[Rfam]
RNA sequence: UCAUUUCUAUAUUUGAACCAAAUUAUGAAUAACAACGUACAUACAUGGUGGUGGAAAAAUUUACGUCAAACGUCGUGAACUAACCAGCGUAUGUAAUACUCAUAUAAAGGCUUAUC
Numbered sequence: 001u002c003a004u005u006u007c008u009a010u011a012u013u014u015g016a017a018c019c020a021a022a023u024u025a026u027g028a029a030u031a032a033c034a035a036c037g038u039a040c041a042u043a044c045a046u047g048g049u050g051g052u053g054g055a056a057a058a059a060u061u062u063a064c065g066u067c068a069a070a071c072g073u074c075g076u077g078a079a080c081u082a083a084c085c086a087g088c089g090u091a092u093g094u095a096a097u098a099c100u101c102a103u104a105u106a107a108a109g110g111c112u113u114a115u116c
Base pairs, nucleotide, nucleotide: 037099038098039097042095043094044093045092046091047090050088052086053085058081060079061078062077063073064072065071

Bacteroidete tryptophan peptide leader RNA: a 116-nucleotide sequence from Rasiella rasia.
Its family is annotated with regulation of gene expression and S-adenosylmethionine metabolic process in the Gene Ontology.
Lineage of the source: Bacteria > Pseudomonadati > Flavobacteriales > Flavobacteriaceae > Rasiella.
It is annotated as a cis-regulatory leader.